Rfam assigns this 60-nucleotide RNA from Rhizobium oryziradicis to the family "terC RNA".
Nucleotides: 060
Base pairs, nucleotide, nucleotide: 006054007053008052010050011049012048022043023042024041025040026039027038028037029036
Number, partner (000 for none) and nucleotide at each position: 001000g002000c003000g004000c005000a006054a007053c008052u009000g010050c011049g012048g013000g014000c015000c016000c017000c018000u019000c020000u021000g022043g023042c024041g025040g026039g027038a028037a029036a030000u031000u032000c033000g034000g035000c036029u037028u038027u039026c040025c041024c042023g043022u044000g045000a046000u047000g048012u049011c050010g051000g052008a053007g054006u055000u056000g057000u058000u059000u060000u
Rfam 15.1 lists 1,112 matches to the family in 772 species. It is annotated as a cis-regulatory element. The organism belongs to Rhizobium, within Bacteria. The family's consensus secondary structure is taken from published work.